A member of the RNA family "7SK RNA" from Chrysochloris asiatica, 311 nucleotides long. NCBI's taxonomy places the organism under Eukaryota, Deuterostomia, Vertebrata, Theria, Chrysochloris. Pairs were carried over by alignment from the consensus structure, which is taken from published work. From the family's description: 7SK was discovered as an abundant small nuclear RNA in the mid-70s but a possible function has only recently been suggested. Two independent studies have found that 7SK RNA binds the CDK9/cyclin T complex (known as elongation factor P-TEFb). Its Rfam clan is "7SK clan". Rfam classes the family as a non-coding RNA gene.
[Rfam]
RNA sequence: GGAUGUGAGGGUGAUCUGGCUGUGACAUCUGUCGCCCCAUUGAUCCCCAGGUUUGAUUCGGCUGAUCUGGCUGACUAGACGGGUGUCCCCUUCCUCCCUCACUGCUCCAUGUGUGUCCCUCCCAAAGCUGCACGCUCUGUUGAAGAGGAUGACCUUCCCUGAUAGAGGAGAGGACCGUCCUUAGGUCAAGGGCAUACGAGUAGCUGCACUCCCCUGCUAGAACUUCCAAACGAAAACCAUUAGUGAAGAAGACAGGAAAAAAUGGCUUUGAAAAUAAACGAGCAGUCUCUGCAGUAGUAGUUAGACUACUA
Numbered sequence: 001g002g003a004u005g006u007g008a009g010g011g012u013g014a015u016c017u018g019g020c021u022g023u024g025a026c027a028u029c030u031g032u033c034g035c036c037c038c039a040u041u042g043a044u045c046c047c048c049a050g051g052u053u054u055g056a057u058u059c060g061g062c063u064g065a066u067c068u069g070g071c072u073g074a075c076u077a078g079a080c081g082g083g084u085g086u087c088c089c090c091u092u093c094c095u096c097c098c099u100c101a102c103u104g105c106u107c108c109a110u111g112u113g114u115g116u117c118c119c120u121c122c123c124a125a126a127g128c129u130g131c132a133c134g135c136u137c138u139g140u141u142g143a144a145g146a147g148g149a150u151g152a153c154c155u156u157c158c159c160u161g162a163u164a165g166a167g168g169a170g171a172g173g174a175c176c177g178u179c180c181u182u183a184g185g186u187c188a189a190g191g192g193c194a195u196a197c198g199a200g201u202a203g204c205u206g207c208a209c210u211c212c213c214c215u216g217c218u219a220g221a222a223c224u225u226c227c228a229a230a231c232g233a234a235a236a237c238c239a240u241u242a243g244u245g246a247a248g249a250a251g252a253c254a255g256g257a258a259a260a261a262a263u264g265g266c267u268u269u270g271a272a273a274a275u276a277a278a279c280g281a282g283c284a285g286u287c288u289c290u291g292c293a294g295u296a297g298u299a300g301u302u303a304g305a306c307u308a309c310u311a
Base pairs, nucleotide, nucleotide: 001108002107003106005102006101007100008099009098010097011096013093014092018090019089024087025086026085027084028083029082030081031080032079033078036073037070038069039068042067043066044065045064047061048060116173117172118168119167120166121165122139125136127135128134140162141161142160147158148157149156203266204265205264210259213256214255215254216253224248225247227245230244231243233241234240284307285306286305287304289300290299291298292297
The family has 45 seed sequences and 49,373 matches in Rfam 15.1.
For this family Rfam cites "Transcription: surprising role for an elusive small nuclear RNA" (Blencowe, Curr Biol, 2002).